[Rfam]
RNA: Glycine riboswitch aptamer
RNA sequence: GGACGAAUCUCUGGAGAGACUCCCUCUCGCUUUAAAUAGCGUAGAGGAAAACGAGCACCGAAGGAGCAAAUCCGCUACUAUAGCGGAUAAUCUCUCAGGUAAAAGGACAGAGACAAGCGA
Dot-bracket structure: .......((((((......(((..............................))).(((((..(((....(((((.......)))))....))))).))).......)))))).......